[Rfam]
RNA sequence: UGCCGGAUCCGGGCCCCUCUGGCGAUCGAGGCGUCGGUCGUGAUGUCGGAUCCCUCAC
Numbered sequence: 001u002g003c004c005g006g007a008u009c010c011g012g013g014c015c016c017c018u019c020u021g022g023c024g025a026u027c028g029a030g031g032c033g034u035c036g037g038u039c040g041u042g043a044u045g046u047c048g049g050a051u052c053c054c055u056c057a058c
Stems, first nucleotide, its partner, number of pairs: 006052007022041008

Background: Rfam assigns this 58-nucleotide sequence from Tistrella mobilis to the family "terC RNA". Lineage of the source: Bacteria > Pseudomonadati > Pseudomonadota > Alphaproteobacteria > Tistrella mobilis.